Shown here is a 67-nucleotide sequence from Caulobacter vibrioides, a member of the family "terC RNA". By type it is a cis-regulatory element.
[Rfam]
RNA sequence: UGUGCGGGCCGGGCCCCUCUGACGACCCUCGUGCUGAAAAGCGCGAUCGUGAUGUCGGACCGCGUCG
Numbered sequence: 001u002g003u004g005c006g007g008g009c010c011g012g013g014c015c016c017c018u019c020u021g022a023c024g025a026c027c028c029u030c031g032u033g034c035u036g037a038a039a040a041g042c043g044c045g046a047u048c049g050u051g052a053u054g055u056c057g058g059a060c061c062g063c064g065u066c067g
Base pairs, nucleotide, nucleotide: 006061007060009058010057011056012055022050023049024048025047029046030045031044032043033042034041035040